[Rfam]
The family of this 579-nucleotide RNA sequence is "ROOL RNA". Rfam's curators put it in the seed alignment. Firmicutes, Fusobacteria (1 example), Tenericutes (1 example).
RNA sequence: ACAUUUAAUUCUACACUUUUGUACCCAAGUGUAGAGGUCGGUCAGGCUUGCUUGGAACUUCUGAACAUUUAGAUUGAUUUAUGAGUGAUAGCUUAUAGAGAAGUCUAUCAUGGUGUAGUAAUACAUUAUGAGAAGAACGUGUUGUUCAACAAUAAGGGAGUGUGCAAAGGGUAAGUAGGUUAUAAGGUAGAAUCAUCGCCUCGCUCAUACAAUAGACGCCUCGGUGAGGAAUAAUCCAGAAAUCCCUUUAGUUGGUGACUGUGGGGCAAAUCGGGAAAUGCCAAUAAGUGAGUAUCGCGUAUAAUCCAGAGAGAAAUCUUUGGGUAAGAGGUCAGGUUCGUAAGAGUAGCAGAACGCGAGAGCAUUUUAGAAAAAUGAACUUGUUUGAAGAGUUUGGUUUCAUAUGCGAAUGGUCUGUGAAAUUUGGGAGUAAAAAGAAUCUCUCAUACACACGGCACAAAGUGUGGGCUGUAAUGGUUAUCGAAGACGUUUGAUAGCUUCGCUUACAGUUCUGUAGUGACUGAAUAAUAAUUGAUUAUCCAAUGUAGGGUGAAAGUCCACAAAAGUGUAGAAUUAAGU
Numbered sequence: 001a002c003a004u005u006u007a008a009u010u011c012u013a014c015a016c017u018u019u020u021g022u023a024c025c026c027a028a029g030u031g032u033a034g035a036g037g038u039c040g041g042u043c044a045g046g047c048u049u050g051c052u053u054g055g056a057a058c059u060u061c062u063g064a065a066c067a068u069u070u071a072g073a074u075u076g077a078u079u080u081a082u083g084a085g086u087g088a089u090a091g092c093u094u095a096u097a098g099a100g101a102a103g104u105c106u107a108u109c110a111u112g113g114u115g116u117a118g119u120a121a122u123a124c125a126u127u128a129u130g131a132g133a134a135g136a137a138c139g140u141g142u143u144g145u146u147c148a149a150c151a152a153u154a155a156g157g158g159a160g161u162g163u164g165c166a167a168a169g170g171g172u173a174a175g176u177a178g179g180u181u182a183u184a185a186g187g188u189a190g191a192a193u194c195a196u197c198g199c200c201u202c203g204c205u206c207a208u209a210c211a212a213u214a215g216a217c218g219c220c221u222c223g224g225u226g227a228g229g230a231a232u233a234a235u236c237c238a239g240a241a242a243u244c245c246c247u248u249u250a251g252u253u254g255g256u257g258a259c260u261g262u263g264g265g266g267c268a269a270a271u272c273g274g275g276a277a278a279u280g281c282c283a284a285u286a287a288g289u290g291a292g293u294a295u296c297g298c299g300u301a302u303a304a305u306c307c308a309g310a311g312a313g314a315a316a317u318c319u320u321u322g323g324g325u326a327a328g329a330g331g332u333c334a335g336g337u338u339c340g341u342a343a344g345a346g347u348a349g350c351a352g353a354a355c356g357c358g359a360g361a362g363c364a365u366u367u368u369a370g371a372a373a374a375a376u377g378a379a380c381u382u383g384u385u386u387g388a389a390g391a392g393u394u395u396g397g398u399u400u401c402a403u404a405u406g407c408g409a410a411u412g413g414u415c416u417g418u419g420a421a422a423u424u425u426g427g428g429a430g431u432a433a434a435a436a437g438a439a440u441c442u443c444u445c446a447u448a449c450a451c452a453c454g455g456c457a458c459a460a461a462g463u464g465u466g467g468g469c470u471g472u473a474a475u476g477g478u479u480a481u482c483g484a485a486g487a488c489g490u491u492u493g494a495u496a497g498c499u500u501c502g503c504u505u506a507c508a509g510u511u512c513u514g515u516a517g518u519g520a521c522u523g524a525a526u527a528a529u530a531a532u533u534g535a536u537u538a539u540c541c542a543a544u545g546u547a548g549g550g551u552g553a554a555a556g557u558c559c560a561c562a563a564a565a566g567u568g569u570a571g572a573a574u575u576a577a578g579u
Base pairs, nucleotide, nucleotide: 008575010573012571017566018565019564020563025055026054027053028052029051035049036048037047038046039045057161058160059159060158061157062156071106072105073104074103075102078099079098080097081096082095083094084093085092086091108131109130110129111128112127113126114125115124116123117122135147136146137145138144139143170541171540174537175536176535181531187522190339191338192337193336196334198332199331200330201329202328203293204292205291206290207289208288219229220228221227222226235276236275237274239272240271244266245265246264247263249261250260251259253283254282255281256280296358297357298356299355307322308321309320310319311318343423349418350417351416352415353414406503407502408500427445428444430442447516448515449514450465467513468511470509474505476504477499479496480495481494482493483492484491485490548559549558550557551556